[Rfam]
RNA sequence: GCCGCAGACCGUCUUAUCGCUUGAUUCGUCAAGAGGAAAGUCCGGACACCAUAGAGUAGCGUAGCGGGUAACGCCCGUCACCAGCCUCCGGGUUGGGAGGACCAGUGCAACAGAAAGGAUGUACAGUUCGGCUGUAGUGAAAUCAGGUAAACUCUACGUGGUGCAAUGUCAAGUAUAUCAACAGCCAGUUUACUGGACAGAGCGACUCGCUCUGGUUGAAGGGUAGGCAGCUUGAUCACAAGAGUAAUUUUGUGGCUAGAUAAAUGAUAAGAACUUCUUCGGGGGUACAGAAUCCGGCUUACAGGUCUGCUUUUUUU
Numbered sequence: 001g002c003c004g005c006a007g008a009c010c011g012u013c014u015u016a017u018c019g020c021u022u023g024a025u026u027c028g029u030c031a032a033g034a035g036g037a038a039a040g041u042c043c044g045g046a047c048a049c050c051a052u053a054g055a056g057u058a059g060c061g062u063a064g065c066g067g068g069u070a071a072c073g074c075c076c077g078u079c080a081c082c083a084g085c086c087u088c089c090g091g092g093u094u095g096g097g098a099g100g101a102c103c104a105g106u107g108c109a110a111c112a113g114a115a116a117g118g119a120u121g122u123a124c125a126g127u128u129c130g131g132c133u134g135u136a137g138u139g140a141a142a143u144c145a146g147g148u149a150a151a152c153u154c155u156a157c158g159u160g161g162u163g164c165a166a167u168g169u170c171a172a173g174u175a176u177a178u179c180a181a182c183a184g185c186c187a188g189u190u191u192a193c194u195g196g197a198c199a200g201a202g203c204g205a206c207u208c209g210c211u212c213u214g215g216u217u218g219a220a221g222g223g224u225a226g227g228c229a230g231c232u233u234g235a236u237c238a239c240a241a242g243a244g245u246a247a248u249u250u251u252g253u254g255g256c257u258a259g260a261u262a263a264a265u266g267a268u269a270a271g272a273a274c275u276u277c278u279u280c281g282g283g284g285g286u287a288c289a290g291a292a293u294c295c296g297g298c299u300u301a302c303a304g305g306u307c308u309g310c311u312u313u314u315u316u317u
Stems, first nucleotide, its partner, number of pairs: 001313001004310007011302001012272007020033005038300003042297005047163004054208004059159005064078005079099001081096006100154002105152002107148002122136006167229004178219005199213005236255008
Dot-bracket structure: (..(((((((((((((((.(((((....)))))....[[[.[[[[[((((...[[[[.((((((((((.....)))))(.((((((....))))))..)((...((((.............((((((...))))))..........))..)))))))))))))...((((.......(((((................(((((.]]]]))))).)))))......))))......((((((((....))))))))..........)))))))....................]]]]]]]].).)))))))..)....
Overview:
Shown here is a 317-nucleotide RNA from Flavobacterium sp. BFFFF2, a member of the family "Bacterial RNase P class A". Ribonuclease P (RNase P) is a ubiquitous endoribonuclease, found in archaea, bacteria and eukarya as well as chloroplasts and mitochondria. The source organism's lineage runs through Bacteria, Pseudomonadati, Bacteroidota, Flavobacteriaceae and Flavobacterium. By type it is a ribozyme.